[Rfam]
RNA sequence: GAAUUAUAAAGAGGAGUAGAGAGAACGGGCUCAUAGAAACUCCGGCAACCUGCGAAAAUUCGAAAGGUGCCAAAACCCGACCUGAAAGCAGGAGUUAUAAUUU
Number, nucleotide and partner (000 for none) at each position: 001g103002a102003a101004u100005u099006a098007u097008a096009a000010a000011g000012a000013g043014g042015a041016g040017u039018a000019g000020a000021g032022a031023g030024a000025a000026c079027g078028g077029g076030c023031u022032c021033a000034u000035a000036g000037a000038a000039a017040c016041u015042c014043c013044g071045g070046c069047a068048a000049c067050c066051u064052g000053c062054g061055a000056a000057a000058a000059u000060u000061c054062g053063a000064a051065a000066g050067g049068u047069g046070c045071c044072a000073a000074a000075a095076c029077c028078c027079g026080a000081c092082c091083u090084g089085a000086a000087a000088g000089c084090a083091g082092g081093a000094g000095u075096u008097a007098u006099a005100a004101u003102u002103u001

Rfam assigns this 103-nucleotide RNA from Sanguibacteroides justesenii to the family "SAM riboswitch aptamer (S box leader)". A search with the family's covariance model found it, with a score of 71 bits.